[Rfam]
RNA: Bacterial large subunit ribosomal RNA, nucleotides 830 to 1260
Organism: Chloroherpeton thalassium
RNA sequence: CUCCCCGAAAUGUUUUGAGGAACAGCCUCGGAAAGAGUCUACUGGAGGUAGAGCUACCGAUUGGGCUAGGGCUGUCACAACGGUACCAAACCCAGACGAACUCCGAAUGCCAGUAUGAUAUAUCCGGGAGUGAGGGCAUGAGCGAUAAGGUCCAUGUCCGAGAGGGAAACAACCCAGAGCUACAGCUAAGGUCCCUAAAUUCAGACUAAGUGAUCAAAGAAUGUUUGUUUGCUUAGACAGCUAGGAUGUUGGCUUAGAAGCAGCCACCAUUUAAAGAGUGCGUAAUAGCUCACUAGUCAAGCGAACAAGCGUCGAUAAUAAUCGGGGCUCAAGUCUGAUACCGAAGCUUAGCGCCGUAAGGCGGUAGGGGAGCAUUCCAAGAGCGUUGAAGGUGAUAGGUGACUAUUGCUGGAGCGCUUGGAAAAGAAGAU
Numbered sequence: 001c002u003c004c005c006c007g008a009a010a011u012g013u014u015u016u017g018a019g020g021a022a023c024a025g026c027c028u029c030g031g032a033a034a035g036a037g038u039c040u041a042c043u044g045g046a047g048g049u050a051g052a053g054c055u056a057c058c059g060a061u062u063g064g065g066c067u068a069g070g071g072c073u074g075u076c077a078c079a080a081c082g083g084u085a086c087c088a089a090a091c092c093c094a095g096a097c098g099a100a101c102u103c104c105g106a107a108u109g110c111c112a113g114u115a116u117g118a119u120a121u122a123u124c125c126g127g128g129a130g131u132g133a134g135g136g137c138a139u140g141a142g143c144g145a146u147a148a149g150g151u152c153c154a155u156g157u158c159c160g161a162g163a164g165g166g167a168a169a170c171a172a173c174c175c176a177g178a179g180c181u182a183c184a185g186c187u188a189a190g191g192u193c194c195c196u197a198a199a200u201u202c203a204g205a206c207u208a209a210g211u212g213a214u215c216a217a218a219g220a221a222u223g224u225u226u227g228u229u230u231g232c233u234u235a236g237a238c239a240g241c242u243a244g245g246a247u248g249u250u251g252g253c254u255u256a257g258a259a260g261c262a263g264c265c266a267c268c269a270u271u272u273a274a275a276g277a278g279u280g281c282g283u284a285a286u287a288g289c290u291c292a293c294u295a296g297u298c299a300a301g302c303g304a305a306c307a308a309g310c311g312u313c314g315a316u317a318a319u320a321a322u323c324g325g326g327g328c329u330c331a332a333g334u335c336u337g338a339u340a341c342c343g344a345a346g347c348u349u350a351g352c353g354c355c356g357u358a359a360g361g362c363g364g365u366a367g368g369g370g371a372g373c374a375u376u377c378c379a380a381g382a383g384c385g386u387u388g389a390a391g392g393u394g395a396u397a398g399g400u401g402a403c404u405a406u407u408g409c410u411g412g413a414g415c416g417c418u419u420g421g422a423a424a425a426g427a428a429g430a431u
Base pairs, nucleotide, nucleotide: 001372002371003370004369005368006367011024012023013022014021015020026130027128028127029126030125031124032123036121038117040115041114042113043112044111045110051104052102053101058098059097062094063093064092065091069087070086071084072083073082074081075080134159135158136157137156138155139154140153142151143150164175165174166173179352180351181350182349184348185347186346190342191341192340199339201338202337203336204335205334206333219313220312223310224309225308226307227306228305229304230303231302232301240297241296242295243294244293246270247269248268251265252264253263271275276291280289281288353362354361355360373426375423376422377421378420379419380418381417383415384414391410392409393408394407395406396405397404398403